[Rfam]
RNA sequence: UAGGUUAGAAGCUCGCUGUAGGGGCUACAUUCGAGUGCUCUUGUACUGAUCAAUCAUGAUACAGAUGCACAAUUCGCCCUUGGGAAGGUCUGAGACCAAGGUCGCUUUACGUCUUCCAGACGAAGGCCGCUGUAACAGGCGGGUGGGUCACCAGAAAUUGGCUUGAUGGAGUUUAUAUCGGUCCAAGACACUACAAGGGAUUUAUCUCUUUAGUGGAGGCCAUGAACUUGCAUCAUAGUUGAAAAAAGACUCACGACCAGCUGAAUGAGUUCAAUUAGCGAGGUGGCACUUAUGUGUUCUAACUCAAUUCAGACUACUCUCUGACCUA
Numbered sequence: 001u002a003g004g005u006u007a008g009a010a011g012c013u014c015g016c017u018g019u020a021g022g023g024g025c026u027a028c029a030u031u032c033g034a035g036u037g038c039u040c041u042u043g044u045a046c047u048g049a050u051c052a053a054u055c056a057u058g059a060u061a062c063a064g065a066u067g068c069a070c071a072a073u074u075c076g077c078c079c080u081u082g083g084g085a086a087g088g089u090c091u092g093a094g095a096c097c098a099a100g101g102u103c104g105c106u107u108u109a110c111g112u113c114u115u116c117c118a119g120a121c122g123a124a125g126g127c128c129g130c131u132g133u134a135a136c137a138g139g140c141g142g143g144u145g146g147g148u149c150a151c152c153a154g155a156a157a158u159u160g161g162c163u164u165g166a167u168g169g170a171g172u173u174u175a176u177a178u179c180g181g182u183c184c185a186a187g188a189c190a191c192u193a194c195a196a197g198g199g200a201u202u203u204a205u206c207u208c209u210u211u212a213g214u215g216g217a218g219g220c221c222a223u224g225a226a227c228u229u230g231c232a233u234c235a236u237a238g239u240u241g242a243a244a245a246a247a248g249a250c251u252c253a254c255g256a257c258c259a260g261c262u263g264a265a266u267g268a269g270u271u272c273a274a275u276u277a278g279c280g281a282g283g284u285g286g287c288a289c290u291u292a293u294g295u296g297u298u299c300u301a302a303c304u305c306a307a308u309u310c311a312g313a314c315u316a317c318u319c320u321c322u323g324a325c326c327u328a
Base pairs, nucleotide, nucleotide: 001328002327003326004325007322008321009320012282013281014280015279016278017277018276020081021080022079023078024077090312091311092310093309094308100258101257102256103255112126113125114124115123116122127142128141129140130139131138143254144253145252146251147250148249149248162238163237283300285298286297287296288295289294
RNA: Nuclear RNase P